[Rfam]
RNA sequence: UCGCGCAGAGCGCCGAAGGCAGGAGCGGGGGACCCAAGGUAAGCGCCGGCCCCGGCCGUUGAGAUCGACGGCUACCAACCGGCUUGGGGUGAAGCCGCGCGCAAAGACGCGCGGCCGGGCAAAUCGUUUCCCGGUUCCUGGCGGAACUGGGGGAUACCCCAUCGGCCCGAACCCGACAGCUCACCUCGUAGGCGUCGGUGAGGGGAAGU
Number, nucleotide and partner (000 for none) at each position: 001u000002c000003g000004c000005g000006c000007a000008g000009a000010g000011c194012g193013c192014c191015g000016a000017a000018g000019g000020c000021a000022g000023g000024a000025g189026c188027g187028g186029g185030g184031g000032a000033c000034c000035c086036a085037a084038g083039g000040u000041a000042a000043g000044c000045g000046c000047c000048g000049g000050c000051c000052c000053c000054g000055g000056c000057c000058g000059u000060u000061g000062a000063g000064a000065u000066c000067g000068a000069c000070g000071g000072c000073u000074a000075c000076c000077a000078a000079c000080c000081g000082g000083c038084u037085u036086g035087g174088g173089g172090u000091g000092a000093a000094g000095c114096c113097g112098c111099g110100c109101g000102c000103a000104a000105a000106g000107a000108c000109g100110c099111g098112c097113g096114g095115c000116c000117g168118g167119g166120c165121a000122a000123a000124u000125c000126g000127u000128u000129u000130c000131c000132c000133g000134g000135u000136u000137c000138c000139u000140g000141g000142c000143g000144g000145a000146a000147c000148u000149g000150g000151g000152g000153g000154a000155u000156a000157c000158c000159c000160c000161a000162u000163c000164g000165g120166c119167c118168c117169g000170a000171a000172c089173c088174c087175g000176a000177c000178a000179g000180c000181u000182c000183a000184c030185c029186u028187c027188g026189u025190a000191g014192g013193c012194g011195u000196c000197g000198g000199u000200g000201a000202g000203g000204g000205g000206a000207a000208g000209u000
Shown here is a 209-nucleotide sequence from Streptomyces sp. ISL-1, a member of the family "c-di-AMP riboswitch aptamer (ydaO/yuaA leader)".